[Rfam]
RNA sequence: ACUAUGGAGAGUACAAGGAACUAUGAGUAGAUACAUUGUAUUGAAAGUAUGUUAGUUGAAGUAGUAA
Numbered sequence: 001a002c003u004a005u006g007g008a009g010a011g012u013a014c015a016a017g018g019a020a021c022u023a024u025g026a027g028u029a030g031a032u033a034c035a036u037u038g039u040a041u042u043g044a045a046a047g048u049a050u051g052u053u054a055g056u057u058g059a060a061g062u063a064g065u066a067a
Stems, first nucleotide, its partner, number of pairs: 001065005010053004022049003030042003034038001
RAGATH-18 RNA: a 67-nucleotide sequence. Pairs were carried over by alignment from the consensus structure, which is taken from published work. It is one of the family's seed sequences.